[Rfam]
RNA sequence: ACCUUCCUUGUCUUGGGGAGCAGAAAUGUCCAAUGAACGUAUAGUGAGGACAUUGCUGCUGACACCAAUGAUAUUAACAUCAGCCCCCGUUUGCUGAUCAUCUCGUGAUUAGCUUUCGGAAUUUUUGGAAAA
Numbered sequence: 001a002c003c004u005u006c007c008u009u010g011u012c013u014u015g016g017g018g019a020g021c022a023g024a025a026a027u028g029u030c031c032a033a034u035g036a037a038c039g040u041a042u043a044g045u046g047a048g049g050a051c052a053u054u055g056c057u058g059c060u061g062a063c064a065c066c067a068a069u070g071a072u073a074u075u076a077a078c079a080u081c082a083g084c085c086c087c088c089g090u091u092u093g094c095u096g097a098u099c100a101u102c103u104c105g106u107g108a109u110u111a112g113c114u115u116u117c118g119g120a121a122u123u124u125u126u127g128g129a130a131a132a
Stems, first nucleotide, its partner, number of pairs: 005019005020059004025054007037045002087119003094112006
RNA: U4atac minor spliceosomal RNA